[Rfam]
RNA sequence: UACGCGGACGCAGGAGAGAGCGGGGCUUGCCCCGCCGCCGAAGGCGCAACCGGCCCCCGGAACCGCUCAGGCAAAAGGGCUGCGGAUCGGUC
Numbered sequence: 001u002a003c004g005c006g007g008a009c010g011c012a013g014g015a016g017a018g019a020g021c022g023g024g025g026c027u028u029g030c031c032c033c034g035c036c037g038c039c040g041a042a043g044g045c046g047c048a049a050c051c052g053g054c055c056c057c058c059g060g061a062a063c064c065g066c067u068c069a070g071g072c073a074a075a076a077g078g079g080c081u082g083c084g085g086a087u088c089g090g091u092c
Stems, first nucleotide, its partner, number of pairs: 006087001009084005020035004037072003040068002044066003050060002
This 92-nucleotide sequence from Acidocella sp. MX-AZ02 belongs to the Rfam family "Glycine riboswitch aptamer". The source organism's lineage runs through Bacteria, Pseudomonadati, Pseudomonadota, Acidocellaceae and Acidocella. The base pairs follow the family's consensus structure.